[Rfam]
RAGATH-10 RNA: an 88-nucleotide sequence.
It is annotated as a small RNA.
A reference for the family is Weinberg et al. (2015), "New classes of self-cleaving ribozymes revealed by comparative genomics analysis", Nat Chem Biol.
The sequence is in the family's curated seed alignment.
RNA sequence: GAAACCUCAUCUUGCUCACACGUCAUUCGGAUGUAAGAGCAGUGUUUUUUAUAAAACACGGACAUUCCCGUCCAGGUGAGGAGAAAGG
Numbered sequence: 001g002a003a004a005c006c007u008c009a010u011c012u013u014g015c016u017c018a019c020a021c022g023u024c025a026u027u028c029g030g031a032u033g034u035a036a037g038a039g040c041a042g043u044g045u046u047u048u049u050u051a052u053a054a055a056a057c058a059c060g061g062a063c064a065u066u067c068c069c070g071u072c073c074a075g076g077u078g079a080g081g082a083g084a085a086a087g088g
Base pairs, nucleotide, nucleotide: 005081006080007079008078009077010076011075012074015039016038017037020034021033022032023031024030042059043058044057045056046055047054048053060073061072062071063070